[Rfam]
Shown here is a 56-nucleotide RNA sequence from Microvirga brassicacearum, a member of the family "terC RNA". Rfam classes the family as a cis-regulatory element. It scores 53 bits against the family's covariance model. Taxonomically the source falls in Microvirga (Bacteria, Pseudomonadati, Alphaproteobacteria, Hyphomicrobiales).

RNA sequence: GAACCAGGCCGGGCCCCUCUGGCGGCUCCUCGGAGCAGCGAUGUCGGACUGGAUCG
Numbered sequence: 001g002a003a004c005c006a007g008g009c010c011g012g013g014c015c016c017c018u019c020u021g022g023c024g025g026c027u028c029c030u031c032g033g034a035g036c037a038g039c040g041a042u043g044u045c046g047g048a049c050u051g052g053a054u055c056g
Stems, first nucleotide, its partner, number of pairs: 006050002009047004022039002025036004